Rfam assigns this 112-nucleotide RNA sequence from Peribacillus asahii to the family "BsrF". It is annotated as a small RNA. The base pairs follow the family's consensus structure, which was predicted with WAR.

RNA sequence: GCGAUGAGCUAAUUUGUGUAAGUCGAAGAAUAUGCUUUAUGCUAAACGUUGGGAUGUGGCCCAACGGUUCUCGCCACAAACGCAUCAAAGACACCGGCAUUUAGUCGGUGUC
Numbered sequence: 001g002c003g004a005u006g007a008g009c010u011a012a013u014u015u016g017u018g019u020a021a022g023u024c025g026a027a028g029a030a031u032a033u034g035c036u037u038u039a040u041g042c043u044a045a046a047c048g049u050u051g052g053g054a055u056g057u058g059g060c061c062c063a064a065c066g067g068u069u070c071u072c073g074c075c076a077c078a079a080a081c082g083c084a085u086c087a088a089a090g091a092c093a094c095c096g097g098c099a100u101u102u103a104g105u106c107g108g109u110g111u112c
Base pairs, nucleotide, nucleotide: 014079015078016077017076018075024073025072026071028070029069030068031067034042035041047066048065050063051062052061090112091111092110093109094108095107096106097105098104